[Rfam]
The record is a 394-nucleotide sequence from Labedaea rhizosphaerae, which matches "Bacterial RNase P class A" in Rfam. NCBI's taxonomy places the organism under Bacteria, Actinomycetota, Actinomycetes, Pseudonocardiaceae, Labedaea. A search with the family's covariance model found it, with a score of 273 bits. From the family's description: Ribonuclease P (RNase P) is a ubiquitous endoribonuclease, found in archaea, bacteria and eukarya as well as chloroplasts and mitochondria. Rfam classes the family as a ribozyme.

RNA sequence: CGAGUCGGCAGGGCGGCCGCGUUCCCGGCCACGAGCCGGGACCGAGGAAAGUCCGGACUCCGAAAGGGCAGGGUGGUUGCUAACGGCAACCCGAGGUGACUCGCGGGACAGUGCCACAGAGAACAGACCGCCUCGCCACAAGCGGGGUAAGGGUGAAACGGUGCGUGUAAGAGACCACCGCGGCCUGGGUGACCAGGCUGGCACGGCAAACCCCACCCGGAGCAAGGCCAAGAGGGAACCGCGAGGUUCCUGCGCAGGCGUUCGAGGGCGGCCCGCCCGAGCCUGCGGGUAGGCCGCUGGAGCCUGUCGGCAACGGCAGGCCUAGAUGGAUGGUCGCCGCCGCUUUCGCGCAAGCGGACGCGGCACAGAAUCCGGCUUACGGCCGGCUCGUCCG
Numbered sequence: 001c002g003a004g005u006c007g008g009c010a011g012g013g014c015g016g017c018c019g020c021g022u023u024c025c026c027g028g029c030c031a032c033g034a035g036c037c038g039g040g041a042c043c044g045a046g047g048a049a050a051g052u053c054c055g056g057a058c059u060c061c062g063a064a065a066g067g068g069c070a071g072g073g074u075g076g077u078u079g080c081u082a083a084c085g086g087c088a089a090c091c092c093g094a095g096g097u098g099a100c101u102c103g104c105g106g107g108a109c110a111g112u113g114c115c116a117c118a119g120a121g122a123a124c125a126g127a128c129c130g131c132c133u134c135g136c137c138a139c140a141a142g143c144g145g146g147g148u149a150a151g152g153g154u155g156a157a158a159c160g161g162u163g164c165g166u167g168u169a170a171g172a173g174a175c176c177a178c179c180g181c182g183g184c185c186u187g188g189g190u191g192a193c194c195a196g197g198c199u200g201g202c203a204c205g206g207c208a209a210a211c212c213c214c215a216c217c218c219g220g221a222g223c224a225a226g227g228c229c230a231a232g233a234g235g236g237a238a239c240c241g242c243g244a245g246g247u248u249c250c251u252g253c254g255c256a257g258g259c260g261u262u263c264g265a266g267g268g269c270g271g272c273c274c275g276c277c278c279g280a281g282c283c284u285g286c287g288g289g290u291a292g293g294c295c296g297c298u299g300g301a302g303c304c305u306g307u308c309g310g311c312a313a314c315g316g317c318a319g320g321c322c323u324a325g326a327u328g329g330a331u332g333g334u335c336g337c338c339g340c341c342g343c344u345u346u347c348g349c350g351c352a353a354g355c356g357g358a359c360g361c362g363g364c365a366c367a368g369a370a371u372c373c374g375g376c377u378u379a380c381g382g383c384c385g386g387c388u389c390g391u392c393c394g
Base pairs, nucleotide, nucleotide: 001390002389003388004387005386006385007384008383009382011380012338013337014336015335016334017333018332020044021043023041024040025039026038027037028036049378050377051376053375054374055373056372057371058222059221060220061219066274067273068272069271071218072217073216074215075214076090077089078088079087080086091105092103093102094101095100106213107212111211112210113207114206115205128152129151130148131147132146133145134144135143136142160179161178162177163176165175166174180202181200182199183198184197185196186195187194188193226295227294228293229292254286255285256284257283258282259281266278267277268276269275302321303320304319305318306317307316308315309314